[Rfam]
RNA sequence: AACUUAUCCAGAGAGGUGGAGGGAUUGGCCCGAUGAAACCUCAGCAACCGGCCUGCACGGCACGGUGCUAAUUCCAAUAAGCCUGAGGCUUUGAAGAUAAGUU
Number, nucleotide and partner (000 for none) at each position: 001a103002a102003c101004u100005u099006a098007u097008c096009c000010a000011g000012a000013g042014a041015g040016g039017u038018g000019g000020a000021g031022g030023g029024a000025u077026u076027g075028g074029c023030c022031c021032g000033a000034u000035g000036a000037a000038a017039c016040c015041u014042c013043a069044g068045c067046a066047a000048c065049c064050g061051g000052c059053c000054u000055g000056c000057a000058c000059g052060g000061c050062a000063c000064g049065g048066u046067g045068c044069u043070a000071a000072u000073u095074c028075c027076a026077a025078u000079a091080a090081g089082c088083c087084u000085g000086a000087g083088g082089c081090u080091u079092u000093g000094a000095a073096g008097a007098u006099a005100a004101g003102u002103u001
RNA: SAM riboswitch aptamer (S box leader)